[Rfam]
RNA sequence: GGCGUGGGGGAGGAGUCCCUCAGCCCAGAUUGCGAGAGAGCGCAGGCCAGGCUUAGGGACCCCACCAGUGCACG
Numbered sequence: 001g002g003c004g005u006g007g008g009g010g011a012g013g014a015g016u017c018c019c020u021c022a023g024c025c026c027a028g029a030u031u032g033c034g035a036g037a038g039a040g041c042g043c044a045g046g047c048c049a050g051g052c053u054u055a056g057g058g059a060c061c062c063c064a065c066c067a068g069u070g071c072a073c074g
Base pairs, nucleotide, nucleotide: 004071006069009066010065012063013062015060016059017058018057019056020055022053023052024051025050028047030045031044032043033042034041
Shown here is a 74-nucleotide sequence from Myotis myotis, a member of the family "mir-9193 microRNA precursor family". Rfam 15.1 lists 6,008 matches to the family in 8 species.